The record is a 47-nucleotide sequence from Agrobacterium bohemicum, which matches "Guanidine-II riboswitch aptamer (mini-ykkC)" in Rfam.
Pairs were carried over by alignment from the consensus structure, which is taken from published work.
[Rfam]
RNA sequence: CCACGGGGACGACCCCGGCAUGAUGAUUGAAACUCGGGACGACCCGA
Numbered sequence: 001c002c003a004c005g006g007g008g009a010c011g012a013c014c015c016c017g018g019c020a021u022g023a024u025g026a027u028u029g030a031a032a033c034u035c036g037g038g039a040c041g042a043c044c045c046g047a
Stems, first nucleotide, its partner, number of pairs: 001018002005016004034047005